[Rfam]
RNA sequence: UACAAUCGAAUCGGCUCCUCAAGGGUGGUCGACUCAUCCCCUGCAGAAAGGGGGUGAGAUCGUGACAGUGUACGAAGCACUUUCGUUGAUGCUUGCUUUCAGUCUGCUUAUCGUGUGUGGGCUGUCAUUCCACCAAAAGAAGCAGACCGCCCUUGAGCUUGUGGGAAGCCUGGCGGUCUACUCACUAAUCCUAUGAGCCGCCCCCCUUGUGGGGAACGUCUAUUGUGCAACGGAGACCCAUGGCGUUGGCCGACGCCUGUG
Numbered sequence: 001u002a003c004a005a006u007c008g009a010a011u012c013g014g015c016u017c018c019u020c021a022a023g024g025g026u027g028g029u030c031g032a033c034u035c036a037u038c039c040c041c042u043g044c045a046g047a048a049a050g051g052g053g054g055u056g057a058g059a060u061c062g063u064g065a066c067a068g069u070g071u072a073c074g075a076a077g078c079a080c081u082u083u084c085g086u087u088g089a090u091g092c093u094u095g096c097u098u099u100c101a102g103u104c105u106g107c108u109u110a111u112c113g114u115g116u117g118u119g120g121g122c123u124g125u126c127a128u129u130c131c132a133c134c135a136a137a138a139g140a141a142g143c144a145g146a147c148c149g150c151c152c153u154u155g156a157g158c159u160u161g162u163g164g165g166a167a168g169c170c171u172g173g174c175g176g177u178c179u180a181c182u183c184a185c186u187a188a189u190c191c192u193a194u195g196a197g198c199c200g201c202c203c204c205c206c207u208u209g210u211g212g213g214g215a216a217c218g219u220c221u222a223u224u225g226u227g228c229a230a231c232g233g234a235g236a237c238c239c240a241u242g243g244c245g246u247u248g249g250c251c252g253a254c255g256c257c258u259g260u261g
Stems, first nucleotide, its partner, number of pairs: 001227005008220002011215001012200006018157008027147001029145001034057003038053005064126006077092003101118001104115001167186002202214004239261003242257006
RNA: BsrG